[Rfam]
RNA sequence: GUCGCACGAGAUGAGUGGUUCGGCAAUGGGCCCUUGAUGGCCCAAAACCGAGAAAAGUCCCCGGGCCCACUUCUGCAGAGAUGCGGCGUCCGCCGUCCGAAAGGUUGAGUUCUGAUCCGAGUCAACUCGCCCCUUGCGAGGACUGAGACACGUGUGGAGUCUGUGUUGACUCGGACUGAACGCUUGGCCAAAUCGAACAGUUAAUCCACUCAAUCCGUUUAGGAUCUACAGAACGGGGCUUAUGAUCUCGUGCCC
Numbered sequence: 001g002u003c004g005c006a007c008g009a010g011a012u013g014a015g016u017g018g019u020u021c022g023g024c025a026a027u028g029g030g031c032c033c034u035u036g037a038u039g040g041c042c043c044a045a046a047a048c049c050g051a052g053a054a055a056a057g058u059c060c061c062c063g064g065g066c067c068c069a070c071u072u073c074u075g076c077a078g079a080g081a082u083g084c085g086g087c088g089u090c091c092g093c094c095g096u097c098c099g100a101a102a103g104g105u106u107g108a109g110u111u112c113u114g115a116u117c118c119g120a121g122u123c124a125a126c127u128c129g130c131c132c133c134u135u136g137c138g139a140g141g142a143c144u145g146a147g148a149c150a151c152g153u154g155u156g157g158a159g160u161c162u163g164u165g166u167u168g169a170c171u172c173g174g175a176c177u178g179a180a181c182g183c184u185u186g187g188c189c190a191a192a193u194c195g196a197a198c199a200g201u202u203a204a205u206c207c208a209c210u211c212a213a214u215c216c217g218u219u220u221a222g223g224a225u226c227u228a229c230a231g232a233a234c235g236g237g238g239c240u241u242a243u244g245a246u247c248u249c250g251u252g253c254c255c
Stems, first nucleotide, its partner, number of pairs: 004253008014210005020051004028043005055241003059238004074085004109181003118173005127168001129166002140162004150155001213225004
Dot-bracket structure: ...((((((((..(((((.((((....(((((......)))))....))))...[[[.[[[[...........((((....)))).......................(((......(((((....(.((.........((((......(....)...))))..)).)))))).....)))........................)))))..((((.....)))).........]]]]]]]....))))))))..
RNase MRP: a 255-nucleotide RNA sequence from Camphora micrantha. About the family: RNase MRP is an enzymatically active ribonucleoprotein with two distinct roles in eukaryotes. The organism belongs to Camphora, within Eukaryota. Pairs were carried over by alignment from the consensus structure, which is taken from published work.